[Rfam]
pemK RNA: a 100-nucleotide RNA. By type it is a cis-regulatory element.

RNA sequence: AUAAUGAUACUUCCGUCCGGUCGAAAGUCGAGCGUGAUAAAACCGUCGCAGCAUACGAGGGCGGCUCCGGGAGAUCCUCAGGGUGGUGAGAUUCCAAUGA
Numbered sequence: 001a002u003a004a005u006g007a008u009a010c011u012u013c014c015g016u017c018c019g020g021u022c023g024a025a026a027g028u029c030g031a032g033c034g035u036g037a038u039a040a041a042a043c044c045g046u047c048g049c050a051g052c053a054u055a056c057g058a059g060g061g062c063g064g065c066u067c068c069g070g071g072a073g074a075u076c077c078u079c080a081g082g083g084u085g086g087u088g089a090g091a092u093u094c095c096a097a098u099g100a
Stems, first nucleotide, its partner, number of pairs: 012097001013064006065083003069079003084096003